Shown here is an 86-nucleotide RNA from Gouania willdenowi, a member of the family "let-7 microRNA precursor family". Rfam links the family to the GO terms RISC complex and miRNA-mediated post-transcriptional gene silencing. Pairs were carried over by alignment from the consensus structure, which was predicted with RNAalifold. The family is grouped with related families in Rfam's "let-7 microRNA precursor clan". A search with the family's covariance model found it, with a score of 65 bits. The organism belongs to Gouania, within Eukaryota. This family represents the microRNAs (miRNA) let-7 and mir-98. let-7 was identified from a study of developmental timing in C. elegans, and was later shown to be part of a much larger class of non-coding RNAs termed miRNAs.
RNA sequence: GCAAGGUGAGGUAGUAGGUUGUAUAGUUUGUGGGAUGGAUGUAAUCCUGCUAAGGUGGUAACUAUACAGUCUAAUACCUUGCUUGA
Dot-bracket structure: .((((..((((((.(((((((((((((....((((.........)))).(......)...))))))))))))).)))))).)))).
Numbered sequence: 001g002c003a004a005g006g007u008g009a010g011g012u013a014g015u016a017g018g019u020u021g022u023a024u025a026g027u028u029u030g031u032g033g034g035a036u037g038g039a040u041g042u043a044a045u046c047c048u049g050c051u052a053a054g055g056u057g058g059u060a061a062c063u064a065u066a067c068a069g070u071c072u073a074a075u076a077c078c079u080u081g082c083u084u085g086a
Stems, first nucleotide, its partner, number of pairs: 002085004008080006015073013032048004050057001